[Rfam]
RNA: Small nucleolar RNA R11/Z151
RNA sequence: CGGCCUGUGAUGACAAACGUUUAGCGGAUUUCGCUGAGAUGCGUCGUUGAUGUGCGUUUAUUUGUUACACACACUGAGGCUG
Numbered sequence: 001c002g003g004c005c006u007g008u009g010a011u012g013a014c015a016a017a018c019g020u021u022u023a024g025c026g027g028a029u030u031u032c033g034c035u036g037a038g039a040u041g042c043g044u045c046g047u048u049g050a051u052g053u054g055c056g057u058u059u060a061u062u063u064g065u066u067a068c069a070c071a072c073a074c075u076g077a078g079g080c081u082g
Stems, first nucleotide, its partner, number of pairs: 001082005